[Rfam]
RNA sequence: UCGCGACGGUGAGCGCAGAAGGGUCUGGGCGUGAGCCUGCCUGGAGCCGCCGUCGGUGCAGAU
Numbered sequence: 001u002c003g004c005g006a007c008g009g010u011g012a013g014c015g016c017a018g019a020a021g022g023g024u025c026u027g028g029g030c031g032u033g034a035g036c037c038u039g040c041c042u043g044g045a046g047c048c049g050c051c052g053u054c055g056g057u058g059c060a061g062a063u
Stems, first nucleotide, its partner, number of pairs: 002058001004055008013047002021042002028037003